[Rfam]
RNA: MIR6274 microRNA precursor family
RNA sequence: GGAUAGUACUAUUUUGCUAUCUUCGGCUAAUAAUGCAAUGACACGUGGAAAAAUUAUCCCAUGUGUCAUUACUCUAUUAGUCGGGAAUAGUAAAAAGUGUUAUCUCC
Numbered sequence: 001g002g003a004u005a006g007u008a009c010u011a012u013u014u015u016g017c018u019a020u021c022u023u024c025g026g027c028u029a030a031u032a033a034u035g036c037a038a039u040g041a042c043a044c045g046u047g048g049a050a051a052a053a054u055u056a057u058c059c060c061a062u063g064u065g066u067c068a069u070u071a072c073u074c075u076a077u078u079a080g081u082c083g084g085g086a087a088u089a090g091u092a093a094a095a096a097g098u099g100u101u102a103u104c105u106c107c
Stems, first nucleotide, its partner, number of pairs: 002106002005103001012095009022085011035072001037070012050057001